[Rfam]
Shown here is a 112-nucleotide RNA from Cohnella zeiphila, a member of the family "epsC RNA".
The match comes from Rfam's covariance-model search (102 bits).
Rfam 15.1 lists 450 matches to the family in 334 species.

RNA sequence: AGGAAAUGUCUCCUGCUCCUUUAUCACCGGAGGCACUCGGCCAUGCUGUGGGUCAAACAGACCUUAGACGUUCAUCGUCAAGGGUGUGGCGUGAGGGCGGGUUCGAUGCCCA
Numbered sequence: 001a002g003g004a005a006a007u008g009u010c011u012c013c014u015g016c017u018c019c020u021u022u023a024u025c026a027c028c029g030g031a032g033g034c035a036c037u038c039g040g041c042c043a044u045g046c047u048g049u050g051g052g053u054c055a056a057a058c059a060g061a062c063c064u065u066a067g068a069c070g071u072u073c074a075u076c077g078u079c080a081a082g083g084g085u086g087u088g089g090c091g092u093g094a095g096g097g098c099g100g101g102u103u104c105g106a107u108g109c110c111c112a
Base pairs, nucleotide, nucleotide: 001020002019003018004017007035008034009033010032011031012030013029036095037094038093039092040090041089042088043087044086045085046084047083050064051063052062053061054060067079068078069077070076099111100110101109102108
The family's RNA type in Rfam is cis-regulatory element.